[Rfam]
RNA sequence: ACACCUUUAUUGUCCUUUUGGCUAAUAUUAAGCGUAGUAUCUGUUUUUAUAAAUGUAAUAUAUAAUAUAUGUAAUAUAUAAUAUGUGCGCUAUGUUCCAUUUUAACAUUAAAAUUACUUUUCGUGGAAAAAGACCCACCGGUUGGCUUUGCUAUCGGGGCGGUUGAGCGUCGCCUAGCUGUUGCACUACUGGUAGGGCUUGGCCCACCCUAA
Numbered sequence: 001a002c003a004c005c006u007u008u009a010u011u012g013u014c015c016u017u018u019u020g021g022c023u024a025a026u027a028u029u030a031a032g033c034g035u036a037g038u039a040u041c042u043g044u045u046u047u048u049a050u051a052a053a054u055g056u057a058a059u060a061u062a063u064a065a066u067a068u069a070u071g072u073a074a075u076a077u078a079u080a081a082u083a084u085g086u087g088c089g090c091u092a093u094g095u096u097c098c099a100u101u102u103u104a105a106c107a108u109u110a111a112a113a114u115u116a117c118u119u120u121u122c123g124u125g126g127a128a129a130a131a132g133a134c135c136c137a138c139c140g141g142u143u144g145g146c147u148u149u150g151c152u153a154u155c156g157g158g159g160c161g162g163u164u165g166a167g168c169g170u171c172g173c174c175u176a177g178c179u180g181u182u183g184c185a186c187u188a189c190u191g192g193u194a195g196g197g198c199u200u201g202g203c204c205c206a207c208c209c210u211a212a
Stems, first nucleotide, its partner, number of pairs: 008027003012023001014021002048067003052063001069100003073096006129164002134159003143153004167205001169203004174196002177193003
A member of the RNA family "U2 spliceosomal RNA" from Panicum miliaceum, 212 nucleotides long.
By type it is a spliceosomal small nuclear RNA.
Taxonomically the source falls in Panicum sect. Panicum (Eukaryota, Mesangiospermae, Poaceae, Panicinae).